mir-3017 microRNA precursor family: a 72-nucleotide RNA from Aphis glycines. Pairs were carried over by alignment from the consensus structure, which was predicted with RNAalifold. On this family, see Legeai et al., BMC Genomics 2010: "Bioinformatic prediction, deep sequencing of microRNAs and expression analysis during phenotypic plasticity in the pea aphid, Acyrthosiphon pisum". The source organism's lineage runs through Eukaryota, Panarthropoda, Insecta, Aphididae and Aphis.

[Rfam]
RNA sequence: CCGUGUUCUGUUCCUGACUCGGCUGGCGCCAGACCGGCGGGCGGCCUCCGCGGUCCGUUACAGAACACGAGA
Numbered sequence: 001c002c003g004u005g006u007u008c009u010g011u012u013c014c015u016g017a018c019u020c021g022g023c024u025g026g027c028g029c030c031a032g033a034c035c036g037g038c039g040g041g042c043g044g045c046c047u048c049c050g051c052g053g054u055c056c057g058u059u060a061c062a063g064a065a066c067a068c069g070a071g072a
Base pairs, nucleotide, nucleotide: 002069003068004067005066006065007064008063009062010061011060014057016055017054018053020052021051022049025046026045027044